[Rfam]
Rfam assigns this 129-nucleotide RNA sequence from Cavia porcellus to the family "Small nucleolar RNA SNORA11". It scores 126 bits against the family's covariance model. Rfam classes the family as an H/ACA-box small nucleolar RNA. The base pairs follow the family's consensus structure, which was predicted with RNAalifold. Gene Ontology terms of the family: nucleolus and RNA processing. About the family: U107 (SNORA11) is a member of the H/ACA class of snoRNAs that guide the sites of modification of uridines to pseudouridines.
RNA sequence: GGGGUGUGCUCAGAGCAGGUGGCCUGAAGAAUGGCUUCUCUGUUUACAGCACACCCAACAGGAGUCUAGGAUCAUUGUAACAAGGGGCACAAAACUUGUGACCUCUCUUGAAGCAAAAGUCCUACACUG
Numbered sequence: 001g002g003g004g005u006g007u008g009c010u011c012a013g014a015g016c017a018g019g020u021g022g023c024c025u026g027a028a029g030a031a032u033g034g035c036u037u038c039u040c041u042g043u044u045u046a047c048a049g050c051a052c053a054c055c056c057a058a059c060a061g062g063a064g065u066c067u068a069g070g071a072u073c074a075u076u077g078u079a080a081c082a083a084g085g086g087g088c089a090c091a092a093a094a095c096u097u098g099u100g101a102c103c104u105c106u107c108u109u110g111a112a113g114c115a116a117a118a119g120u121c122c123u124a125c126a127c128u129g
Stems, first nucleotide, its partner, number of pairs: 002056007013045007021037001022035003069122004076115003084104003088100005